[Rfam]
RNA sequence: CUACUUCAUUAUGAAUCUCUUAGUUGAGAUAGCAACCUGCAAUAACAAGCGAAGGUGCUUUAACAAUGAGCCUUUACAAAGGAAAAAAAUGUAUCAUU
Numbered sequence: 001c002u003a004c005u006u007c008a009u010u011a012u013g014a015a016u017c018u019c020u021u022a023g024u025u026g027a028g029a030u031a032g033c034a035a036c037c038u039g040c041a042a043u044a045a046c047a048a049g050c051g052a053a054g055g056u057g058c059u060u061u062a063a064c065a066a067u068g069a070g071c072c073u074u075u076a077c078a079a080a081g082g083a084a085a086a087a088a089a090u091g092u093a094u095c096a097u098u
Stems, first nucleotide, its partner, number of pairs: 006069005015030005031059003036055003039050002045092003071082004
Dot-bracket structure: .....(((((....(((((......)))))(((..(((((....[[[.))..))).))).....))))).((((....)))).......]]]......

The family of this 98-nucleotide RNA from Bizionia paragorgiae is "SAM-I/IV (S-adenosyl methionine) riboswitch aptamer". Lineage of the source: Bacteria > Bacteroidota > Flavobacteriales > Flavobacteriaceae > Bizionia. A search with the family's covariance model found it, with a score of 59 bits. A reference for the family is Trausch et al. (2014), "Structural basis for diversity in the SAM clan of riboswitches", PNAS. Its family is annotated with S-adenosylmethionine metabolic process and regulation of gene expression in the Gene Ontology.